RNA sequence: UGGAAAUGAUGAAAUGGAGAUAAUUGGGUGCUGAAUGUUGUAUGAUUGGAAAUUUUUAAUUUGUAAGUUAAGUUAAUAUUUUAAAGGUUGUGUGUGUGUGUGUGUGUGCACUUGUGAAGGCUAUGGAAAGGGGGCACUGACUGGUGAUGCUGAUAUUGGAGUGCAUCUGAGGCUGUUGUAGAAACACGUGGGUUGUCAAUACAACAUUGCCGAUGAUUAUACCUUAAGAACAGCUCACCUAAGUAGCCUAGCACCCUAAAAUCUCUAACAGGUUCAUAAUGCAUGGUCCUGUGAUCUGAUCCAA
Numbered sequence: 001u002g003g004a005a006a007u008g009a010u011g012a013a014a015u016g017g018a019g020a021u022a023a024u025u026g027g028g029u030g031c032u033g034a035a036u037g038u039u040g041u042a043u044g045a046u047u048g049g050a051a052a053u054u055u056u057u058a059a060u061u062u063g064u065a066a067g068u069u070a071a072g073u074u075a076a077u078a079u080u081u082u083a084a085a086g087g088u089u090g091u092g093u094g095u096g097u098g099u100g101u102g103u104g105u106g107u108g109c110a111c112u113u114g115u116g117a118a119g120g121c122u123a124u125g126g127a128a129a130g131g132g133g134g135c136a137c138u139g140a141c142u143g144g145u146g147a148u149g150c151u152g153a154u155a156u157u158g159g160a161g162u163g164c165a166u167c168u169g170a171g172g173c174u175g176u177u178g179u180a181g182a183a184a185c186a187c188g189u190g191g192g193u194u195g196u197c198a199a200u201a202c203a204a205c206a207u208u209g210c211c212g213a214u215g216a217u218u219a220u221a222c223c224u225u226a227a228g229a230a231c232a233g234c235u236c237a238c239c240u241a242a243g244u245a246g247c248c249u250a251g252c253a254c255c256c257u258a259a260a261a262u263c264u265c266u267a268a269c270a271g272g273u274u275c276a277u278a279a280u281g282c283a284u285g286g287u288c289c290u291g292u293g294a295u296c297u298g299a300u301c302c303a304a
Base pairs, nucleotide, nucleotide: 001303002302003301004300174206175205176204177203178202179201180200184196185195186194187192
RNA: Small Cajal body-specific RNA 7
Organism: Galemys pyrenaicus